[Rfam]
RNA sequence: CCUGCCGAAGUUUCCCUCAGGAUAGCAGAAACUCACAUCAGUUUUAUGUGGUAAAGCGAAUGAUUAGAGGCCUUGGGGUUGAAACAACCUUAACCUAUUCUCAAACUUUAAAUAUGUAAGAUCGGACCGUCACUUGAUUGGACCGUCUGGCGAAUGAGAGUUUCUAGUGGGCCAUUUUUGGUAAGCAGAACUGGCGAUGCGGGAUGAACCGAUCGCGAGGUUAAGGUGCCGGAAUACACGCUCAUCAGACACCACAAAAGGUGUUAGUUCAUCUAGACAGCAGGACGGUGGCCAUGGAAGUCGGAACCCGCUAAGGAGUGUGUAACAACUCACCUGCCGAAUGAACUAGCCCUGAAAAUGGAUGGCGCUCAAGCGUGUUACCCAUACCUCGCCGUCAGCGUUGAAGUGACGCGCUGACGAGUAGGCAGGCGUGGAGGUCGUGAAGAAGCCUUGGCAGUGAUGCUGGGUGAAACGGCCUCUAGUGCAGAU
Numbered sequence: 001c002c003u004g005c006c007g008a009a010g011u012u013u014c015c016c017u018c019a020g021g022a023u024a025g026c027a028g029a030a031a032c033u034c035a036c037a038u039c040a041g042u043u044u045u046a047u048g049u050g051g052u053a054a055a056g057c058g059a060a061u062g063a064u065u066a067g068a069g070g071c072c073u074u075g076g077g078g079u080u081g082a083a084a085c086a087a088c089c090u091u092a093a094c095c096u097a098u099u100c101u102c103a104a105a106c107u108u109u110a111a112a113u114a115u116g117u118a119a120g121a122u123c124g125g126a127c128c129g130u131c132a133c134u135u136g137a138u139u140g141g142a143c144c145g146u147c148u149g150g151c152g153a154a155u156g157a158g159a160g161u162u163u164c165u166a167g168u169g170g171g172c173c174a175u176u177u178u179u180g181g182u183a184a185g186c187a188g189a190a191c192u193g194g195c196g197a198u199g200c201g202g203g204a205u206g207a208a209c210c211g212a213u214c215g216c217g218a219g220g221u222u223a224a225g226g227u228g229c230c231g232g233a234a235u236a237c238a239c240g241c242u243c244a245u246c247a248g249a250c251a252c253c254a255c256a257a258a259a260g261g262u263g264u265u266a267g268u269u270c271a272u273c274u275a276g277a278c279a280g281c282a283g284g285a286c287g288g289u290g291g292c293c294a295u296g297g298a299a300g301u302c303g304g305a306a307c308c309c310g311c312u313a314a315g316g317a318g319u320g321u322g323u324a325a326c327a328a329c330u331c332a333c334c335u336g337c338c339g340a341a342u343g344a345a346c347u348a349g350c351c352c353u354g355a356a357a358a359u360g361g362a363u364g365g366c367g368c369u370c371a372a373g374c375g376u377g378u379u380a381c382c383c384a385u386a387c388c389u390c391g392c393c394g395u396c397a398g399c400g401u402u403g404a405a406g407u408g409a410c411g412c413g414c415u416g417a418c419g420a421g422u423a424g425g426c427a428g429g430c431g432u433g434g435a436g437g438u439c440g441u442g443a444a445g446a447a448g449c450c451u452u453g454g455c456a457g458u459g460a461u462g463c464u465g466g467g468u469g470a471a472a473c474g475g476c477c478u479c480u481a482g483u484g485c486a487g488a489u
Stems, first nucleotide, its partner, number of pairs: 001429006011024001013022003027165007042121008054109001055107002061103003066098001068096003073093006080086001123149005129143003171195004176190005200211003215392005221386001225382003234379001236378001239375003259353003263350010280337005286310003292304002311315001316331001320329002393419009430484001432481010448468002454463003

Eukaryotic large subunit ribosomal RNA: a 489-nucleotide part of an RNA from Auriculariales sp. MPI-PUGE-AT-0066. The organism belongs to Auriculariales, within Eukaryota. A search with the family's covariance model found it, with a score of 3426 bits. The literature on the family includes a 2002 paper in BMC Bioinformatics by Cannone et al., "The comparative RNA web (CRW) site: an online database of comparative sequence and structure information for ribosomal, intron, and other RNAs".